[Rfam]
RNA sequence: GAGCAAUGACGAUUCUUGUCACGAGUCGUAUCAUCGAAGCGCAUAGUUUUUGGCUGUCGUUUAGAGCUGAAAAUGUUUCGACGGCGUGAUCGAUUGACUAAUCUUCUCUCUGAGCUCU
Numbered sequence: 001g002a003g004c005a006a007u008g009a010c011g012a013u014u015c016u017u018g019u020c021a022c023g024a025g026u027c028g029u030a031u032c033a034u035c036g037a038a039g040c041g042c043a044u045a046g047u048u049u050u051u052g053g054c055u056g057u058c059g060u061u062u063a064g065a066g067c068u069g070a071a072a073a074u075g076u077u078u079c080g081a082c083g084g085c086g087u088g089a090u091c092g093a094u095u096g097a098c099u100a101a102u103c104u105u106c107u108c109u110c111u112g113a114g115c116u117c118u
Stems, first nucleotide, its partner, number of pairs: 001117004
RNA: Small nucleolar RNA U6-47